[Rfam]
RNA sequence: AUGAUACUAACUUAACGUCGGUAGUCAUUCCCGCGUAGGCGGAAAUCUCUUUAAUUGCUAUGAGGUCCCUGUGUCAAGCACGAGGAUUGUAAGUUAAAUCUCUAGUAUAAUUUUU
Numbered sequence: 001a002u003g004a005u006a007c008u009a010a011c012u013u014a015a016c017g018u019c020g021g022u023a024g025u026c027a028u029u030c031c032c033g034c035g036u037a038g039g040c041g042g043a044a045a046u047c048u049c050u051u052u053a054a055u056u057g058c059u060a061u062g063a064g065g066u067c068c069c070u071g072u073g074u075c076a077a078g079c080a081c082g083a084g085g086a087u088u089g090u091a092a093g094u095u096a097a098a099u100c101u102c103u104a105g106u107a108u109a110a111u112u113u114u115u
Base pairs, nucleotide, nucleotide: 003026004025005024006022007021008020010018011017027046028045029044031042032041033040034039056107057106058105059104060103062102063101064100065087066086067085068084070082071081072080073079074078

Francisella sRNA B: a 115-nucleotide sequence from Francisella tularensis. The organism belongs to Francisella tularensis subsp. mediasiatica, within Bacteria. Its family is annotated with regulation of gene expression in the Gene Ontology. Deletion led to significant changes in the expression of several mRNAs. However, it did not alter Francisella's growth under stress condition or its ability to induce disease in a mouse model.